RNA sequence: UGCACUCACUACUGUAAGUCACUCUGGAUAAGAGUAUCUGCUAAAGGACAAUUU
Numbered sequence: 001u002g003c004a005c006u007c008a009c010u011a012c013u014g015u016a017a018g019u020c021a022c023u024c025u026g027g028a029u030a031a032g033a034g035u036a037u038c039u040g041c042u043a044a045a046g047g048a049c050a051a052u053u054u
Stems, first nucleotide, its partner, number of pairs: 013043001014041003021035005

UnaL2 LINE 3' element: a 54-nucleotide RNA sequence from Salvelinus namaycush.
It scores 60 bits against the family's covariance model.
Lineage of the source: Eukaryota > Metazoa > Euteleosteomorpha > Protacanthopterygii > Salvelinus.
The family has 30 seed sequences and 493,311 matches in Rfam 15.1.